Rfam assigns this 149-nucleotide RNA sequence from Salmonella enterica to the family "Enterobacterial sRNA STnc70". Rfam's curators put it in the seed alignment. The base pairs follow the family's consensus structure, which was predicted with PFOLD. NCBI's taxonomy places the organism under Bacteria, Pseudomonadati, Salmonella, Salmonella enterica subsp. enterica, Salmonella enterica subsp. enterica serovar Gallinarum.
[Rfam]
Nucleotides: 149
Stems, first nucleotide, its partner, number of pairs: 014086006035069002038066012095104003112144003117139010
Number, partner (000 for none) and nucleotide at each position: 001000g002000a003000g004000c005000g006000c007000a008000a009000c010000a011000c012000u013000u014086a015085g016084c017083c018082a019081g020000c021000a022000u023000a024000u025000a026000c027000g028000c029000u030000a031000u032000g033000g034000a035069u036068u037000u038066c039065g040064a041063g042062u043061u044060g045059c046058a047057g048056a049055c050000a051000a052000u053000a054000c055049g056048u057047c058046u059045g060044u061043a062042a063041u064040u065039u066038g067000c068036a069035a070000g071000a072000c073000g074000a075000g076000u077000c078000g079000u080000a081019c082018u083017g084016g085015c086014u087000c088000u089000g090000a091000a092000g093000u094000u095104a096103c097102c098000u099000a100000c101000g102097g103096g104095u105000a106000g107000u108000u109000c110000a111000g112144g113143u114142a115000a116000u117139g118138g119137g120136g121135c122134c123133g124132c125131c126130u127000g128000u129000c130126a131125g132124g133123c134122g135121g136120c137119c138118u139117u140000u141000u142114u143113a144112c145000u146000u147000u148000a149000g